The record is a 108-nucleotide sequence from Myroides phaeus, which matches "6S-Flavo RNA" in Rfam. The match comes from Rfam's covariance-model search (96 bits). Taxonomically the source falls in Myroides (Bacteria, Bacteroidota, Flavobacteriia, Flavobacteriales). The base pairs follow the family's consensus structure, which is taken from published work.
[Rfam]
RNA sequence: ACUCAACACAAACAAAUUAAAAUGGGUGAAUCUUUGCUACUAAAGCACGCUGCGUUAAGCAGAUCCUUGAACAGCAGGCUAACUCAAAACUUGUUAUUUAGAGAGUUU
Numbered sequence: 001a002c003u004c005a006a007c008a009c010a011a012a013c014a015a016a017u018u019a020a021a022a023u024g025g026g027u028g029a030a031u032c033u034u035u036g037c038u039a040c041u042a043a044a045g046c047a048c049g050c051u052g053c054g055u056u057a058a059g060c061a062g063a064u065c066c067u068u069g070a071a072c073a074g075c076a077g078g079c080u081a082a083c084u085c086a087a088a089a090c091u092u093g094u095u096a097u098u099u100a101g102a103g104a105g106u107u108u
Stems, first nucleotide, its partner, number of pairs: 023086005034077005043068003050062004